[Rfam]
Small nucleolar RNA Z103: a 102-nucleotide sequence from Brassica oleracea. For this family Rfam cites "The high diversity of snoRNAs in plants: identification and comparative study of 120 snoRNA genes from Oryza sativa" (Chen et al., Nucleic Acids Res, 2003). Taxonomically the source falls in Brassica oleracea (Eukaryota, Streptophytina, Euphyllophyta, Spermatophyta).
RNA sequence: AUGGAGAUGAUGACAAUUUCCCCAGAUGAUCGAAUUUGAUUAUACUGAGCGAUUAGAACUUCCUCCCAUCAGAGGACAGUCAAGCCAAUUAGUCUAAUCCUU
Numbered sequence: 001a002u003g004g005a006g007a008u009g010a011u012g013a014c015a016a017u018u019u020c021c022c023c024a025g026a027u028g029a030u031c032g033a034a035u036u037u038g039a040u041u042a043u044a045c046u047g048a049g050c051g052a053u054u055a056g057a058a059c060u061u062c063c064u065c066c067c068a069u070c071a072g073a074g075g076a077c078a079g080u081c082a083a084g085c086c087a088a089u090u091a092g093u094c095u096a097a098u099c100c101u102u
Base pairs, nucleotide, nucleotide: 001102003100004099005098